A member of the RNA family "Selenocysteine transfer RNA" from Nonomuraea glycinis, 92 nucleotides long.
Taxonomically the source falls in Nonomuraea (Bacteria, Actinomycetota, Actinomycetes, Streptosporangiaceae).
Gene Ontology term of the family: triplet codon-amino acid adaptor activity.
RNA sequence: GGAGGUGUCUGGGCGCCUGGUGGCCCCCGCGGUCUUCAAAACCGACGAGGUCGAGGUCCUCGGCCUGGCGGGUUCGAUUCCCGUCCGCCUCC
Numbered sequence: 001g002g003a004g005g006u007g008u009c010u011g012g013g014c015g016c017c018u019g020g021u022g023g024c025c026c027c028c029g030c031g032g033u034c035u036u037c038a039a040a041a042c043c044g045a046c047g048a049g050g051u052c053g054a055g056g057u058c059c060u061c062g063g064c065c066u067g068g069c070g071g072g073u074u075c076g077a078u079u080c081c082c083g084u085c086c087g088c089c090u091c092c
Base pairs, nucleotide, nucleotide: 001092002091003090004089005088006087007086012027013026015024016023017022030044031043032042033041048066049065050064051063052062069083070082071081072080